The record is a 513-nucleotide part of an RNA from Pseudomonas aeruginosa, which matches "Bacterial large subunit ribosomal RNA" in Rfam.
Rfam's curators put it in the seed alignment.
The source organism's lineage runs through Bacteria, Gammaproteobacteria, Pseudomonadales, Pseudomonas and Pseudomonas aeruginosa.
RNA sequence: GAAGAAGCGCAUACGGUGGAUGCCUUGGCAGUCAGAGGCGAUGAAAGACGUGGUAGCCUGCGAAAAGCUUCGGGGAGUCGGCAAACAGACUUUGAUCCGGAGAUCUCUGAAUGGGGGAACCCACCUAGGAUAACCUAGGUAUCUUGUACUGAAUCCAUAGGUGCAAGAGGCGAACCAGGGGAACUGAAACAUCUAAGUACCCUGAGGAAAAGAAAUCAACCGAGAUUCCCUUAGUAGUGGCGAGCGAACGGGGAUUAGCCCUUAAGCUUCAUUGAUUUUAGCGGAACGCUCUGGAAAGUGCGGCCAUAGUGGGUGAUAGCCCCGUACGCGAAAGGAUCUUUGAAGUGAAAUCGAGUAGGACGGAGCACGAGAAACUUUGUCUGAACAUGGGGGGACCAUCCUCCAAGGCUAAAUACUACUGACUGACCGAUAGUGAACCAGUACCGUGAGGGAAAGGCGAAAAGAACCCCGGAGAGGGGAGUGAAAUAGAACCUGAAACCGUAUGCGUACAAG
Numbered sequence: 001g002a003a004g005a006a007g008c009g010c011a012u013a014c015g016g017u018g019g020a021u022g023c024c025u026u027g028g029c030a031g032u033c034a035g036a037g038g039c040g041a042u043g044a045a046a047g048a049c050g051u052g053g054u055a056g057c058c059u060g061c062g063a064a065a066a067g068c069u070u071c072g073g074g075g076a077g078u079c080g081g082c083a084a085a086c087a088g089a090c091u092u093u094g095a096u097c098c099g100g101a102g103a104u105c106u107c108u109g110a111a112u113g114g115g116g117g118a119a120c121c122c123a124c125c126u127a128g129g130a131u132a133a134c135c136u137a138g139g140u141a142u143c144u145u146g147u148a149c150u151g152a153a154u155c156c157a158u159a160g161g162u163g164c165a166a167g168a169g170g171c172g173a174a175c176c177a178g179g180g181g182a183a184c185u186g187a188a189a190c191a192u193c194u195a196a197g198u199a200c201c202c203u204g205a206g207g208a209a210a211a212g213a214a215a216u217c218a219a220c221c222g223a224g225a226u227u228c229c230c231u232u233a234g235u236a237g238u239g240g241c242g243a244g245c246g247a248a249c250g251g252g253g254a255u256u257a258g259c260c261c262u263u264a265a266g267c268u269u270c271a272u273u274g275a276u277u278u279u280a281g282c283g284g285a286a287c288g289c290u291c292u293g294g295a296a297a298g299u300g301c302g303g304c305c306a307u308a309g310u311g312g313g314u315g316a317u318a319g320c321c322c323c324g325u326a327c328g329c330g331a332a333a334g335g336a337u338c339u340u341u342g343a344a345g346u347g348a349a350a351u352c353g354a355g356u357a358g359g360a361c362g363g364a365g366c367a368c369g370a371g372a373a374a375c376u377u378u379g380u381c382u383g384a385a386c387a388u389g390g391g392g393g394g395a396c397c398a399u400c401c402u403c404c405a406a407g408g409c410u411a412a413a414u415a416c417u418a419c420u421g422a423c424u425g426a427c428c429g430a431u432a433g434u435g436a437a438c439c440a441g442u443a444c445c446g447u448g449a450g451g452g453a454a455a456g457g458c459g460a461a462a463a464g465a466a467c468c469c470c471g472g473a474g475a476g477g478g479g480a481g482u483g484a485a486a487u488a489g490a491a492c493c494u495g496a497a498a499c500c501g502u503a504u505g506c507g508u509a510c511a512a513g
Stems, first nucleotide, its partner, number of pairs: 007508010022493001023457002027428002029425007036417002038171002046108003049062003068102007077090003113122003123140007142168009175206001176204005186193002216223002226413001227254005237245002257410004267345005274338006281329003287302003291298001305309001311323003358382008389404005444451002467479004